[Rfam]
Shown here is an 83-nucleotide RNA from Cnephaeus nilssonii, a member of the family "mir-574 microRNA precursor family". The match comes from Rfam's covariance-model search (82 bits). Its Rfam clan is "mir-574 microRNA precursor clan". Its family is annotated with miRNA-mediated post-transcriptional gene silencing and RISC complex in the Gene Ontology.
RNA sequence: AGGCCUGCAGAGAGAGAGGCAGGGUCUGAUCUGCAGCCUCAUUGGCAGCUGUUGAUAAGCUGUAGCCUCACUCUUUCUCUCCA
Numbered sequence: 001a002g003g004c005c006u007g008c009a010g011a012g013a014g015a016g017a018g019g020c021a022g023g024g025u026c027u028g029a030u031c032u033g034c035a036g037c038c039u040c041a042u043u044g045g046c047a048g049c050u051g052u053u054g055a056u057a058a059g060c061u062g063u064a065g066c067c068u069c070a071c072u073c074u075u076u077c078u079c080u081c082c083a
Stems, first nucleotide, its partner, number of pairs: 010075005016069005022063001024061001026059002029056003034051004